[Rfam]
RNA sequence: UUGUUCUUUUUUCCUGUGCAUAUCCUUCUUUGAGAAAUGGUUCUAAAGAGGUUUUGGAUGUUGGAAAAUAGGGCAA
Numbered sequence: 001u002u003g004u005u006c007u008u009u010u011u012u013c014c015u016g017u018g019c020a021u022a023u024c025c026u027u028c029u030u031u032g033a034g035a036a037a038u039g040g041u042u043c044u045a046a047a048g049a050g051g052u053u054u055u056g057g058a059u060g061u062u063g064g065a066a067a068a069u070a071g072g073g074c075a076a
Stems, first nucleotide, its partner, number of pairs: 010067005016061003022054001025051008

Background
A member of the RNA family "mir-202 microRNA precursor family" from Ptilonorhynchus violaceus, 76 nucleotides long. The family's consensus secondary structure was predicted with RNAalifold. The literature on the family includes a 2005 paper in Nat Genet by Bentwich et al., "Identification of hundreds of conserved and nonconserved human microRNAs".